Rfam assigns this 104-nucleotide RNA sequence from Tepidimonas alkaliphilus to the family "Vibrio RNA AS9".
The literature on the family includes a 2009 paper in Nucleic Acids Res by Liu et al., "Experimental discovery of sRNAs in Vibrio cholerae by direct cloning, 5S/tRNA depletion and parallel sequencing".
Identified by direct cloning an parallel sequencing experiments with 5S/tRNA depletion.
The source organism's lineage runs through Bacteria, Pseudomonadati, Pseudomonadota, Betaproteobacteria and Tepidimonas.
It scores 53 bits against the family's covariance model.
RNA sequence: CUGCUCGCAGCGCUGGCGCGUCAGCGUCAGGCAGAUCAGCCCGCGGCCAUACUUGGCCAUGAAGUUGAUCGCCUCCGGCGUCACGUGGUCGGCGGCCAGCACCA
Number, nucleotide and partner (000 for none) at each position: 001c000002u000003g058004c000005u056006c055007g054008c000009a000010g027011c026012g025013c024014u023015g022016g000017c000018g000019c000020g000021u000022c015023a014024g013025c012026g011027u010028c000029a000030g000031g000032c000033a000034g000035a050036u049037c000038a000039g047040c046041c045042c000043g000044c000045g041046g040047c039048c000049a036050u035051a000052c000053u000054u007055g006056g005057c000058c003059a000060u000061g000062a000063a000064g000065u000066u104067g103068a000069u101070c000071g096072c095073c000074u000075c092076c091077g090078g000079c087080g086081u000082c000083a000084c000085g000086u080087g079088g000089u000090c077091g076092g075093c000094g000095g072096c071097c000098a000099g000100c000101a069102c000103c067104a066